[Rfam]
RNA sequence: CAACGAUAAUAGCAAACCUUUUGAAAAAUGGGGACGCAAAGCCACGGGUCUAAGGUUCGGAAGAAUGAUGAUCGCCGGGUUACCGAA
Numbered sequence: 001c002a003a004c005g006a007u008a009a010u011a012g013c014a015a016a017c018c019u020u021u022u023g024a025a026a027a028a029u030g031g032g033g034a035c036g037c038a039a040a041g042c043c044a045c046g047g048g049u050c051u052a053a054g055g056u057u058c059g060g061a062a063g064a065a066u067g068a069u070g071a072u073c074g075c076c077g078g079g080u081u082a083c084c085g086a087a
Stems, first nucleotide, its partner, number of pairs: 012037002017032003021028002040081004045077003048072003055066004
The family of this 87-nucleotide sequence from Heyndrickxia shackletonii is "c-di-GMP-I riboswitch aptamer".
The family's consensus secondary structure is taken from published work.
On this family, see Weinberg et al., Nucleic Acids Res 2007: "Identification of 22 candidate structured RNAs in bacteria using the CMfinder comparative genomics pipeline".